The family of this 70-nucleotide RNA from Diatraea saccharalis is "mir-278 microRNA precursor family". A search with the family's covariance model found it, with a score of 62 bits. The base pairs follow the family's consensus structure, which was predicted with RNAalifold.
RNA sequence: GCUACGCCCGGACGAACUUCCCAGAUCGGCCGACAUUCAUGGGUCGGUGGGAUCUUCGUCCGUUUGUAUC
Dot-bracket structure: ..((((..(((((((...(((..(..(((((..........))))).).)))...)))))))..))))..
Numbered sequence: 001g002c003u004a005c006g007c008c009c010g011g012a013c014g015a016a017c018u019u020c021c022c023a024g025a026u027c028g029g030c031c032g033a034c035a036u037u038c039a040u041g042g043g044u045c046g047g048u049g050g051g052a053u054c055u056u057c058g059u060c061c062g063u064u065u066g067u068a069u070c
Stems, first nucleotide, its partner, number of pairs: 003068004009062007019052003024048001027046005